Overview:
Rfam assigns this 160-nucleotide RNA from Pseudomonas matsuisoli to the family "FMN riboswitch aptamer (RFN element)". A search with the family's covariance model found it, with a score of 113 bits.

RNA sequence: AUACGUUCUCAGGGCGGGGUGUAAUUCCCCACCGGCGGUGAUGAUGCGCAAUGCAUCCAGCCCGCGAGCGCUUGCGCCAAUUCUGAACGAAGGGGCAAGGUCAGCAGAUCCGGUGCGACUCCGGAGCCGACGGUCAUAGUCCGGAUGAGAGAGAGCGGGA
Numbered sequence: 001a002u003a004c005g006u007u008c009u010c011a012g013g014g015c016g017g018g019g020u021g022u023a024a025u026u027c028c029c030c031a032c033c034g035g036c037g038g039u040g041a042u043g044a045u046g047c048g049c050a051a052u053g054c055a056u057c058c059a060g061c062c063c064g065c066g067a068g069c070g071c072u073u074g075c076g077c078c079a080a081u082u083c084u085g086a087a088c089g090a091a092g093g094g095g096c097a098a099g100g101u102c103a104g105c106a107g108a109u110c111c112g113g114u115g116c117g118a119c120u121c122c123g124g125a126g127c128c129g130a131c132g133g134u135c136a137u138a139g140u141c142c143g144g145a146u147g148a149g150a151g152a153g154a155g156c157g158g159g160a
Base pairs, nucleotide, nucleotide: 004157005156006155007154008153009152010151017029018028019027031140032139033129034128035065036064037063038062060127061126068105069104109125110124111123112122113121131143132142133141